[Rfam]
RNA sequence: CUGUGCUAGACGGGGAGUUAGCGGUGCCUUGUAGCCUGCAAUCCGCUAUAGCAGGGUCGAAUUCCUUGUUUGAGGCUGUAAUUUGUAAGGUUCGUCUCAUUUCAGUCAAUGUUGAUAAUCGGGUCCCACGCAACGGGAACUCAUGAACUCCGUCAGGUCCGGAAGGAAGCAGCGGUAAGUGAAAUUUCCCGUGUGCCGUGGAUUAAUCUGAUUUGAGUUGACUAAAUGAGUAGCACUUAUAAAUUACUGUCGAUUCAAGGUGCACAG
Number, nucleotide and partner (000 for none) at each position: 001c267002u266003g265004u264005g263006c262007u000008a000009g058010a057011c056012g030013g029014g028015g027016a000017g025018u024019u023020a000021g000022c000023g019024g018025u017026g000027c015028c014029u013030u012031g000032u000033a000034g000035c055036c054037u053038g052039c051040a000041a000042u000043c000044c000045g000046c000047u000048a000049u000050a000051g039052c038053a037054g036055g035056g011057u010058c009059g000060a000061a000062u000063u000064c260065c259066u258067u257068g256069u000070u000071u000072g000073a000074g251075g250076c249077u000078g247079u000080a245081a244082u243083u242084u241085g240086u239087a238088a237089g236090g000091u000092u000093c000094g231095u000096c000097u229098c228099a227100u226101u225102u224103c000104a000105g222106u221107c000108a219109a218110u217111g000112u000113u000114g000115a000116u000117a213118a212119u211120c210121g209122g208123g207124u206125c000126c201127c200128a199129c198130g197131c193132a192133a000134c191135g190136g189137g188138a187139a000140c000141u182142c181143a180144u179145g000146a000147a000148c000149u000150c175151c174152g173153u172154c000155a000156g000157g000158u167159c166160c165161g000162g000163a000164a000165g160166g159167a158168a000169g000170c000171a000172g153173c152174g151175g150176u000177a000178a000179g144180u143181g142182a141183a000184a000185u000186u000187u138188c137189c136190c135191g134192u132193g131194u000195g000196c000197c130198g129199u128200g127201g126202a000203u000204u000205a000206a124207u123208c122209u121210g120211a119212u118213u117214u000215g000216a000217g110218u109219u108220g000221a106222c105223u000224a102225a101226a100227u099228g098229a097230g000231u094232a000233g000234c000235a000236c089237u088238u087239a086240u085241a084242a083243a082244u081245u080246a000247c078248u000249g076250u075251c074252g000253a000254u000255u000256c068257a067258a066259g065260g064261u000262g006263c005264a004265c003266a002267g001

The family of this 267-nucleotide RNA sequence from Clostridium sp. CT7 is "Bacterial large signal recognition particle RNA". The family's RNA type in Rfam is non-coding RNA gene. Rfam links the family to the GO terms signal recognition particle, plasma membrane targeting and SRP-dependent cotranslational protein targeting to membrane, signal sequence recognition. The base pairs follow the family's consensus structure, which is taken from published work.